[Rfam]
RNA: SAM riboswitch aptamer (S box leader)
RNA sequence: UAUUCAUCUCGAGUGACAGAGGGACUGGCCCUAUGAAGUCACGGCAACCAUCAACAAAGAAACGGUGCCAAUUCCAGCGAGAUUAUCUCGAAAGAUGAUAC
Numbered sequence: 001u002a003u004u005c006a007u008c009u010c011g012a013g014u015g016a017c018a019g020a021g022g023g024a025c026u027g028g029c030c031c032u033a034u035g036a037a038g039u040c041a042c043g044g045c046a047a048c049c050a051u052c053a054a055c056a057a058a059g060a061a062a063c064g065g066u067g068c069c070a071a072u073u074c075c076a077g078c079g080a081g082a083u084u085a086u087c088u089c090g091a092a093a094g095a096u097g098a099u100a101c
Base pairs, nucleotide, nucleotide: 004098005097006096007095008094013042014041015040016039017038021031022030023029025077026076027075028074043069044068045067046066048065049064051060052059073093078090079089080088081087082086